[Rfam]
RNA sequence: AAAACCUAAAACGACAAAAGCCCUACCUCUCUUUCAUCUUUGCGGCUCCGAUGACCGCGCCAAAUGAAUUGGGCUUCCAACAAAUAG
Dot-bracket structure: .................................(((..(((((((.(.....).)))))..)).)))....................

BsrC: an 87-nucleotide RNA sequence from Shimazuella alba. The 301 nucleotide sequence from Kouji Nakamura has been trimmed to a highly conserved ~85 nucleotide long core to form this family. It scores 74 bits against the family's covariance model. Rfam 15.1 lists 572 matches to the family in 553 species. The organism belongs to Shimazuella, within Bacteria. The family's consensus secondary structure was predicted with CMfinder.